[Rfam]
RNA sequence: UCCCUCCAGAUCCCUUUCCCAUCAGAUCUGAAUACCGAUCUUGUGGUCGAAAAAGGAGGAAAAAUAAAAUUCAAACUGGUCUCGGCCUCUUUGCCGGUGCAGUUCUGCUCUGAGAGGGGCCAGUUUGAAGACAGU
Numbered sequence: 001u002c003c004c005u006c007c008a009g010a011u012c013c014c015u016u017u018c019c020c021a022u023c024a025g026a027u028c029u030g031a032a033u034a035c036c037g038a039u040c041u042u043g044u045g046g047u048c049g050a051a052a053a054a055g056g057a058g059g060a061a062a063a064a065u066a067a068a069a070u071u072c073a074a075a076c077u078g079g080u081c082u083c084g085g086c087c088u089c090u091u092u093g094c095c096g097g098u099g100c101a102g103u104u105c106u107g108c109u110c111u112g113a114g115a116g117g118g119g120c121c122a123g124u125u126u127g128a129a130g131a132c133a134g135u
Stems, first nucleotide, its partner, number of pairs: 003059005019046003023043001025040004076123007